The family of this 80-nucleotide RNA from Caenorhabditis japonica is "SmY spliceosomal RNA". It is annotated as a spliceosomal small nuclear RNA. The family has 61 seed sequences and 408 matches in Rfam 15.1. Taxonomically the source falls in Caenorhabditis (Eukaryota, Eumetazoa, Ecdysozoa, Peloderinae). A reference for the family is MacMorris et al. (2007), "A novel family of C. elegans snRNPs contains proteins associated with trans-splicing", RNA. A search with the family's covariance model found it, with a score of 51 bits.
[Rfam]
Nucleotides: 080
Base pairs, nucleotide, nucleotide: 022039023038024037026035027034028033058079059078060077061076062075065072
Number, partner (000 for none) and nucleotide at each position: 001000u002000a003000c004000a005000u006000a007000u008000u009000u010000u011000g012000a013000c014000a015000u016000u017000u018000c019000c020000a021000a022039g023038g024037g025000c026035c027034u028033u029000g030000a031000a032000g033028a034027a035026g036000a037024c038023c039022c040000a041000g042000a043000g044000a045000a046000c047000a048000a049000u050000u051000u052000u053000u054000g055000g056000c057000a058079a059078c060077u061076c062075c063000a064000u065072u066000c067000a068000u069000c070000c071000c072065a073000u074000c075062g076061g077060g078059g079058u080000a